[Rfam]
RNA sequence: GAUGGUAGAUCCAUCAGGGACGUUGUAUAGGCGAUGGCUCUAAACCAACCAAAGGUGCUAUUGUAAAGAGCCCCGAAGCCUCGGGGGUAUUGCGCGUUUGGGAGAAUCCAAUCCAUGAGGUUGGCAGGU
Numbered sequence: 001g002a003u004g005g006u007a008g009a010u011c012c013a014u015c016a017g018g019g020a021c022g023u024u025g026u027a028u029a030g031g032c033g034a035u036g037g038c039u040c041u042a043a044a045c046c047a048a049c050c051a052a053a054g055g056u057g058c059u060a061u062u063g064u065a066a067a068g069a070g071c072c073c074c075g076a077a078g079c080c081u082c083g084g085g086g087g088u089a090u091u092g093c094g095c096g097u098u099u100g101g102g103a104g105a106a107u108c109c110a111a112u113c114c115a116u117g118a119g120g121u122u123g124g125c126a127g128g129u
Base pairs, nucleotide, nucleotide: 001015002014003013004012005011016041017040018039019038021036023034024033025032026031046128049101050100051099052098053097054091055090057088058087059086061084062083063082108124109123110122111121112120
Overview:
A member of the RNA family "Group II catalytic intron D1-D4-2" from Subsaximicrobium wynnwilliamsii, 129 nucleotides long. Rfam links the family to the GO term Group II intron splicing. Group II introns are found in rRNA, tRNA and mRNA of organelles in fungi, plants and protists, and also in mRNA in bacteria. The organism belongs to Subsaximicrobium, within Bacteria.